[Rfam]
RNA sequence: AUGACGAAACUGGGAGAGACACAGAAUUGUGCGCCGAAGGGGCUGAAGAACUCUCAGGCAAAAGGACCAGUUUCCGACG
Numbered sequence: 001a002u003g004a005c006g007a008a009a010c011u012g013g014g015a016g017a018g019a020c021a022c023a024g025a026a027u028u029g030u031g032c033g034c035c036g037a038a039g040g041g042g043c044u045g046a047a048g049a050a051c052u053c054u055c056a057g058g059c060a061a062a063a064g065g066a067c068c069a070g071u072u073u074c075c076g077a078c079g
Base pairs, nucleotide, nucleotide: 006074007073008072009071010070011069012068013067020031021030022029023028033059034058035057036055037054040053041052042051

The record is a 79-nucleotide RNA from Blautia sp. OF03-15BH, which matches "Glycine riboswitch aptamer" in Rfam.
The pairing is the family consensus, mapped onto this sequence.